A member of the RNA family "Bacterial large subunit ribosomal RNA" from cyanobiont of Ornithocercus magnificus, 260 nucleotides of a longer RNA. Pairs were carried over by alignment from the consensus structure, which is taken from published work. The organism belongs to Synechococcales, within Bacteria.
RNA sequence: GGAACAUUGAGAGGAUUUCUCCCUAGUACGAGAGGACCGGGAGGAACGCACCUCUGGUGUGCCAGUUAUCGUGCCAACGGUAAACGCUGGGUAGCCAUGUGCGGAGUGGAUAACCGCUGAAAGCAUCUAAGUGGGAAGCCCACCUCAAGAUGAGUGUUCCCAUGGGGUAACCCAGUAAGGUCACGGGAAGAACACCCGUUGAUAGGCUCUACGUAGAAGUUCAGUAAUGGAUGCAGCGGAGGAGUACUAAUAGACCGAGG
Numbered sequence: 001g002g003a004a005c006a007u008u009g010a011g012a013g014g015a016u017u018u019c020u021c022c023c024u025a026g027u028a029c030g031a032g033a034g035g036a037c038c039g040g041g042a043g044g045a046a047c048g049c050a051c052c053u054c055u056g057g058u059g060u061g062c063c064a065g066u067u068a069u070c071g072u073g074c075c076a077a078c079g080g081u082a083a084a085c086g087c088u089g090g091g092u093a094g095c096c097a098u099g100u101g102c103g104g105a106g107u108g109g110a111u112a113a114c115c116g117c118u119g120a121a122a123g124c125a126u127c128u129a130a131g132u133g134g135g136a137a138g139c140c141c142a143c144c145u146c147a148a149g150a151u152g153a154g155u156g157u158u159c160c161c162a163u164g165g166g167g168u169a170a171c172c173c174a175g176u177a178a179g180g181u182c183a184c185g186g187g188a189a190g191a192a193c194a195c196c197c198g199u200u201g202a203u204a205g206g207c208u209c210u211a212c213g214u215a216g217a218a219g220u221u222c223a224g225u226a227a228u229g230g231a232u233g234c235a236g237c238g239g240a241g242g243a244g245u246a247c248u249a250a251u252a253g254a255c256c257g258a259g260g
Stems, first nucleotide, its partner, number of pairs: 001160008011146004017045007047103005055097003062090005067082006108140002114134005163174003176258001179256004183199005203249003206245005212238002219232005